[Rfam]
RNA: mir-320 microRNA precursor family
Organism: Prolemur simus
RNA sequence: AUGCACCCAGGCCUUCUCUUCCUGGUUCUUCCCUGAGUUGGGAAAAGUUGGGCUGAGAGGGCGGAAAAAAAAAGAA
Numbered sequence: 001a002u003g004c005a006c007c008c009a010g011g012c013c014u015u016c017u018c019u020u021c022c023u024g025g026u027u028c029u030u031c032c033c034u035g036a037g038u039u040g041g042g043a044a045a046a047g048u049u050g051g052g053c054u055g056a057g058a059g060g061g062c063g064g065a066a067a068a069a070a071a072a073a074g075a076a
Base pairs, nucleotide, nucleotide: 014059015058016057017056018055021052022051023050024049025048029044030043031042032041033040